Source information:
The record is a 113-nucleotide RNA from Colocasia esculenta, which matches "Small nucleolar RNA Z103" in Rfam. The family has 12 seed sequences and 2,844 matches in Rfam 15.1. It scores 68 bits against the family's covariance model. Its family is annotated with RNA processing and nucleolus in the Gene Ontology. For this family Rfam cites "The high diversity of snoRNAs in plants: identification and comparative study of 120 snoRNA genes from Oryza sativa" (Chen et al., Nucleic Acids Res, 2003). Taxonomically the source falls in Colocasia (Eukaryota, Mesangiospermae, Araceae, Colocasieae). It is annotated as a C/D-box small nucleolar RNA.
RNA sequence: AUGGAGGUGAUGAUCCUUUCCCCAGCUGAUCGACGCUGAUUACGCCGUGCGCUAAGAAUGACUUCGUUUCCUCCUCGGAGGAUUUGGAGAUCCAAGCCAGGAUUCUGAUCCGU
Numbered sequence: 001a002u003g004g005a006g007g008u009g010a011u012g013a014u015c016c017u018u019u020c021c022c023c024a025g026c027u028g029a030u031c032g033a034c035g036c037u038g039a040u041u042a043c044g045c046c047g048u049g050c051g052c053u054a055a056g057a058a059u060g061a062c063u064u065c066g067u068u069u070c071c072u073c074c075u076c077g078g079a080g081g082a083u084u085u086g087g088a089g090a091u092c093c094a095a096g097c098c099a100g101g102a103u104u105c106u107g108a109u110c111c112g113u
Stems, first nucleotide, its partner, number of pairs: 001113005